The family of this 142-nucleotide RNA from Promineifilum breve is "Glycine riboswitch aptamer". The base pairs follow the family's consensus structure.
RNA sequence: AGCGGCCGCCCGGGAGAGUAUCCUAAUCUCCCCACAGGUUACGAGACCUGUGCUACAGCGCGGGGUCGCCGAAGGGGCAAGCGUGUGGGCCGGAAGAGUGGCCACCGCGAAUCUCUCAGGCACAAAGGACCGAGUGGCCGGG
Numbered sequence: 001a002g003c004g005g006c007c008g009c010c011c012g013g014g015a016g017a018g019u020a021u022c023c024u025a026a027u028c029u030c031c032c033c034a035c036a037g038g039u040u041a042c043g044a045g046a047c048c049u050g051u052g053c054u055a056c057a058g059c060g061c062g063g064g065g066u067c068g069c070c071g072a073a074g075g076g077g078c079a080a081g082c083g084u085g086u087g088g089g090c091c092g093g094a095a096g097a098g099u100g101g102c103c104a105c106c107g108c109g110a111a112u113c114u115c116u117c118a119g120g121c122a123c124a125a126a127g128g129a130c131c132g133a134g135u136g137g138c139c140g141g142g
Base pairs, nucleotide, nucleotide: 006137007136008135009134011132012131013130020066021065022064023063068121069120070119071117072116075115076114077113081108082107